A member of the RNA family "c-di-AMP riboswitch aptamer (ydaO/yuaA leader)" from Arthrobacter sp. Bz4, 174 nucleotides long. The match comes from Rfam's covariance-model search (69 bits). Lineage of the source: Bacteria > Bacillati > Actinomycetes > Micrococcales > Arthrobacter.
[Rfam]
RNA sequence: CGGAUUUGGAUGCUGAGACCCGUGACAGGGGCGGAGGACCCAUCAGACGGCGGCUGAUAAGCCGCCUUGGGGUGAAGUCCGGACGCGGUGCUGCUUCGGCGGACCGGUCAGGGCCGAGUUUCUUCCCGAACUCGAAUCCGACAGCUAACUUCGCAGGCAUAUACGAAAGGGACC
Numbered sequence: 001c002g003g004a005u006u007u008g009g010a011u012g013c014u015g016a017g018a019c020c021c022g023u024g025a026c027a028g029g030g031g032c033g034g035a036g037g038a039c040c041c042a043u044c045a046g047a048c049g050g051c052g053g054c055u056g057a058u059a060a061g062c063c064g065c066c067u068u069g070g071g072g073u074g075a076a077g078u079c080c081g082g083a084c085g086c087g088g089u090g091c092u093g094c095u096u097c098g099g100c101g102g103a104c105c106g107g108u109c110a111g112g113g114c115c116g117a118g119u120u121u122c123u124u125c126c127c128g129a130a131c132u133c134g135a136a137u138c139c140g141a142c143a144g145c146u147a148a149c150u151u152c153g154c155a156g157g158c159a160u161a162u163a164c165g166a167a168a169g170g171g172a173c174c
Stems, first nucleotide, its partner, number of pairs: 011159004019029002031154006041069002070139003078113003116133004